About this RNA: This 96-nucleotide sequence from Gossypium lobatum belongs to the Rfam family "MIR394 microRNA precursor family". The literature on the family includes a 2004 paper in Mol Cell by Jones-Rhoades and Bartel, "Computational identification of plant microRNAs and their targets, including a stress-induced miRNA". Pairs were carried over by alignment from the consensus structure, which was predicted with WAR. Its family is annotated with miRNA-mediated post-transcriptional gene silencing and RISC complex in the Gene Ontology. The organism belongs to Gossypium, within Eukaryota.
RNA sequence: UUUACAGAAACUUUUUGACAUGCUGGCCACCUCCAUUUCCAAGCUAGGUAACAAGUAUUAGUGGAGGUGGACAGAAUGCCAAAUUGGCUCUGCAAC
Numbered sequence: 001u002u003u004a005c006a007g008a009a010a011c012u013u014u015u016u017g018a019c020a021u022g023c024u025g026g027c028c029a030c031c032u033c034c035a036u037u038u039c040c041a042a043g044c045u046a047g048g049u050a051a052c053a054a055g056u057a058u059u060a061g062u063g064g065a066g067g068u069g070g071a072c073a074g075a076a077u078g079c080c081a082a083a084u085u086g087g088c089u090c091u092g093c094a095a096c
Base pairs, nucleotide, nucleotide: 011086015082016081017080019078020077024073025072027070028069029068030067031066032065033064034063
Dot-bracket structure: ..........(...(((.((...((.((((((((............................)))))))).))...)).)))...)..........